Shown here is a 36-nucleotide RNA sequence, a member of the family "DUF805b RNA".
The family is grouped with related families in Rfam's "DUF805 clan".
By type it is a cis-regulatory element.
Rfam's curators put it in the seed alignment.

[Rfam]
RNA sequence: AAGGCGAAUGCCGAAAAGCCUGUAACAGAGUAGGCC
Numbered sequence: 001a002a003g004g005c006g007a008a009u010g011c012c013g014a015a016a017a018g019c020c021u022g023u024a025a026c027a028g029a030g031u032a033g034g035c036c
Stems, first nucleotide, its partner, number of pairs: 002021004010035003